Shown here is a 76-nucleotide sequence from Brassica rapa, a member of the family "Small nucleolar RNA SNORD18". Rfam links the family to the GO terms nucleolus and RNA processing.
RNA sequence: UAGAUGUGAUGAGUAACAAUUUGGUCCGUGUUUCAGAUUAACCGUGACAGAUAAUUUCUAACCAAACUCUGAUCUA
Numbered sequence: 001u002a003g004a005u006g007u008g009a010u011g012a013g014u015a016a017c018a019a020u021u022u023g024g025u026c027c028g029u030g031u032u033u034c035a036g037a038u039u040a041a042c043c044g045u046g047a048c049a050g051a052u053a054a055u056u057u058c059u060a061a062c063c064a065a066a067c068u069c070u071g072a073u074c075u076a
Stems, first nucleotide, its partner, number of pairs: 001076004